[Rfam]
RNA sequence: AUCUUUGCGCAGUGGCAGGAUUGCAGCCUGUGCAGUUAAUCUGACGGGCAAUUAUUGCUAGUUGAAAUCUUUUCCCAAUUCCUGCCUUGAUGAGUUGAAAUACAGUUAGCAAUAGCAAUUCUUGACAACCUCCAUGUAGG
Number, nucleotide and partner (000 for none) at each position: 001a000002u000003c000004u000005u000006u000007g000008c000009g000010c000011a000012g000013u000014g000015g000016c000017a000018g000019g000020a052021u051022u050023g049024c048025a000026g000027c046028c000029u000030g000031u000032g000033c000034a042035g041036u000037u000038a000039a000040u000041c035042u034043g000044a000045c000046g027047g000048g024049c023050a022051a021052u020053u000054a000055u000056u000057g000058c000059u000060a000061g000062u000063u000064g000065a000066a000067a000068u000069c000070u000071u000072u000073u000074c000075c000076c000077a000078a000079u000080u000081c000082c000083u000084g116085c115086c000087u112088u111089g110090a000091u108092g107093a106094g000095u104096u000097g000098a000099a000100a000101u000102a000103c000104a095105g000106u093107u092108a091109g000110c089111a088112a087113u000114a000115g085116c084117a000118a000119u000120u000121c000122u000123u000124g000125a000126c000127a000128a000129c140130c139131u138132c000133c000134a000135u000136g000137u000138a131139g130140g129